[Rfam]
RNA sequence: CCUAAUUGCUCCUGUAAGUUGCUCUGGAUAAGAGCGUCUGCUAAAUGACCUAAA
Numbered sequence: 001c002c003u004a005a006u007u008g009c010u011c012c013u014g015u016a017a018g019u020u021g022c023u024c025u026g027g028a029u030a031a032g033a034g035c036g037u038c039u040g041c042u043a044a045a046u047g048a049c050c051u052a053a054a
Base pairs, nucleotide, nucleotide: 013043014041015040016039020036021035022034023033024032025031
A member of the RNA family "UnaL2 LINE 3' element" from Salvelinus namaycush, 54 nucleotides long. The family's consensus secondary structure is taken from published work. It scores 58 bits against the family's covariance model. Rfam classes the family as a cis-regulatory element. NCBI's taxonomy places the organism under Eukaryota, Bilateria, Chordata, Salmonidae, Salvelinus. Rfam 15.1 lists 493,311 matches to the family in 99 species.